[Rfam]
A member of the RNA family "Small nucleolar RNA SNORD71" from Nannospalax galili, 85 nucleotides long.
Pairs were carried over by alignment from the consensus structure, which was predicted with RNAalifold.
Taxonomically the source falls in Nannospalax (Eukaryota, Craniata, Teleostomi, Mammalia).
A search with the family's covariance model found it, with a score of 98 bits.
Rfam's curators write: snoRNA HBII-239 belongs to the family of C/D snoRNAs.It is the human orthologue of the mouse MBII-239 described and is predicted to guide 2'O-ribose methylation of 5.8S rRNA on residue U14.
The literature on the family includes a 2001 paper in EMBO J by Huttenhofer et al., "RNomics: an experimental approach that identifies 201 candidates for novel, small, non-messenger RNAs in mouse".
RNA sequence: UGUGUGCUGGAGGAUGAAAUUAAGGAGUGAUCCAUCGGCUAAGUGUCUUACCACUAUGCUGAAACUCGAUUACUGACAGCACACG
Numbered sequence: 001u002g003u004g005u006g007c008u009g010g011a012g013g014a015u016g017a018a019a020u021u022a023a024g025g026a027g028u029g030a031u032c033c034a035u036c037g038g039c040u041a042a043g044u045g046u047c048u049u050a051c052c053a054c055u056a057u058g059c060u061g062a063a064a065c066u067c068g069a070u071u072a073c074u075g076a077c078a079g080c081a082c083a084c085g
Stems, first nucleotide, its partner, number of pairs: 002084007009074002012033004017028001035062005043054003